[Rfam]
RNA sequence: AAAAAAAAGGGCCUUCACUUCCUGGUUUGUCCUGGAGUUGGGAAAAGCUGGUUGAGAGGGCGAAAAAGAAAAAAA
Number, nucleotide and partner (000 for none) at each position: 001a000002a000003a000004a000005a000006a000007a000008a000009g000010g000011g000012c000013c000014u058015u057016c056017a000018c054019u000020u000021c051022c050023u000024g049025g048026u000027u000028u000029g000030u043031c042032c041033u040034g039035g000036a000037g000038u000039u034040g033041g032042g031043a030044a000045a000046a000047g000048c025049u024050g022051g021052u000053u000054g018055a000056g016057a015058g014059g000060g000061c000062g000063a000064a000065a000066a000067a000068g000069a000070a000071a000072a000073a000074a000075a000
RNA: mir-320 microRNA precursor family